This 87-nucleotide RNA from Gossypium lobatum belongs to the Rfam family "MIR7486 microRNA precursor family". The base pairs follow the family's consensus structure, which was predicted with RNAalifold. It scores 75 bits against the family's covariance model.

[Rfam]
RNA sequence: CUCAAGGAAGCGCUUUGUCCACGCGGACAGAAAACGCUUUCUUGAGGGUGUGCUUUGUGUCCACGUGGACAAAGAGCUUCCUUGAGG
Numbered sequence: 001c002u003c004a005a006g007g008a009a010g011c012g013c014u015u016u017g018u019c020c021a022c023g024c025g026g027a028c029a030g031a032a033a034a035c036g037c038u039u040u041c042u043u044g045a046g047g048g049u050g051u052g053c054u055u056u057g058u059g060u061c062c063a064c065g066u067g068g069a070c071a072a073a074g075a076g077c078u079u080c081c082u083u084g085a086g087g
Base pairs, nucleotide, nucleotide: 001086002085003084004083005082006081007080008079009078010077011076013074014073015072016071017070018069019068020067021066023064025062026061027060028059029058031056032055033054035052036051037050040047041046